RtT RNA: a 125-nucleotide sequence from Pantoea alhagi. This family represents a bacterial cis-regulatory element known as RtT RNA. The exact function of RtT is unknown although it is thought that it may be involved in changing the cellular response in relation to amino acid starvation. The family has 57 seed sequences and 651 matches in Rfam 15.1. By type it is a cis-regulatory element.
RNA sequence: AGGUUUUCGGUUUGGAGAAGGUGAAAACCUUCGUUAAGGUUCGAGUCGAGCAGCGCGAGACAACACGCGCAGCGUGGCCCGAAGGGUGAGGAGCGAAGCGACGAGUAAUCCUUCUCCCACCACCA
Number, nucleotide and partner (000 for none) at each position: 001a000002g000003g000004u000005u000006u000007u000008c000009g000010g000011u000012u000013u000014g000015g116016a115017g114018a113019a112020g111021g110022u108023g000024a000025a000026a000027a000028c000029c000030u000031u000032c088033g087034u000035u085036a000037a000038g000039g000040u083041u082042c081043g080044a000045g000046u000047c057048g056049a000050g000051c000052a000053g000054c000055g000056c048057g047058a000059g000060a000061c000062a000063a000064c076065a075066c074067g073068c072069g000070c000071a000072g068073c067074g066075u065076g064077g000078c000079c000080c043081g042082a041083a040084g000085g035086g000087u033088g032089a000090g000091g000092a000093g000094c000095g000096a000097a000098g000099c000100g000101a000102c000103g000104a000105g000106u000107a000108a022109u000110c021111c020112u019113u018114c017115u016116c015117c000118c000119a000120c000121c000122a000123c000124c000125a000
The organism belongs to Pantoea, within Bacteria. Rfam links the family to the GO term cellular response to amino acid starvation. The match comes from Rfam's covariance-model search (107 bits).